[Rfam]
Nucleotides: 077
Base pairs, nucleotide, nucleotide: 006070007069009067010066013063014062015061016060017059020056021055022054024053025052026051027050028049
Number, partner (000 for none) and nucleotide at each position: 001000u002000c003000c004000c005000a006070c007069u008000u009067c010066a011000a012000u013063u014062c015061c016060g017059u018000a019000g020056u021055g022054c023000a024053u025052u026051g027050c028049a029000g030000u031000g032000u033000u034000g035000g036000g037000a038000u039000g040000u041000u042000g043000g044000g045000u046000g047000c048000c049028u050027g051026c052025a053024a054022g055021c056020a057000a058000c059017g060016c061015g062014g063013g064000a065000u066010u067009g068000u069007g070006g071000u072000g073000g074000u075000g076000a077000c
Rfam assigns this 77-nucleotide RNA sequence from Apolygus lucorum to the family "mir-932 microRNA precursor family".
A reference for the family is Liu et al. (2010), "MicroRNAs of Bombyx mori identified by Solexa sequencing", BMC Genomics.
Its family is annotated with miRNA-mediated post-transcriptional gene silencing and RISC complex in the Gene Ontology.
NCBI's taxonomy places the organism under Eukaryota, Paraneoptera, Euheteroptera, Mirinae, Apolygus.